[Rfam]
RNA: CRISPR RNA direct repeat element
Organism: Chlorogloea sp. CCALA 695
RNA sequence: CUUUCAACCCACCCUGUAAUAGGAGGGUUGUUGUCAC
Numbered sequence: 001c002u003u004u005c006a007a008c009c010c011a012c013c014c015u016g017u018a019a020u021a022g023g024a025g026g027g028u029u030g031u032u033g034u035c036a037c
Base pairs, nucleotide, nucleotide: 005033006032007031008030009027010026013023014022015021